[Rfam]
Shown here is a 138-nucleotide RNA from Xanthomonas campestris, a member of the family "Proteobacterial sRNA sX11". The organism belongs to Xanthomonas campestris pv. campestris, within Bacteria. The family's RNA type in Rfam is small RNA. For this family Rfam cites "Genome-wide transcriptome analysis of the plant pathogen Xanthomonas identifies sRNAs with putative virulence functions" (Schmidtke et al., Nucleic Acids Res, 2011).
RNA sequence: ACGCCAGUCGCAGCACCCCUUUGGUCCUACUCCCCAAGAGGCCAAAUCCCCAGGGAGCUCAUGCUGUGGGGCUUUGAGCAAGCUCAUUACUGGCGCCAUUACCGCCCCGGUCGUCAUGUACGACCGGGGUUUUUCUUU
Numbered sequence: 001a002c003g004c005c006a007g008u009c010g011c012a013g014c015a016c017c018c019c020u021u022u023g024g025u026c027c028u029a030c031u032c033c034c035c036a037a038g039a040g041g042c043c044a045a046a047u048c049c050c051c052a053g054g055g056a057g058c059u060c061a062u063g064c065u066g067u068g069g070g071g072c073u074u075u076g077a078g079c080a081a082g083c084u085c086a087u088u089a090c091u092g093g094c095g096c097c098a099u100u101a102c103c104g105c106c107c108c109g110g111u112c113g114u115c116a117u118g119u120a121c122g123a124c125c126g127g128g129g130u131u132u133u134u135c136u137u138u
Stems, first nucleotide, its partner, number of pairs: 002095007010067006020046007027038002047056003069085005104130011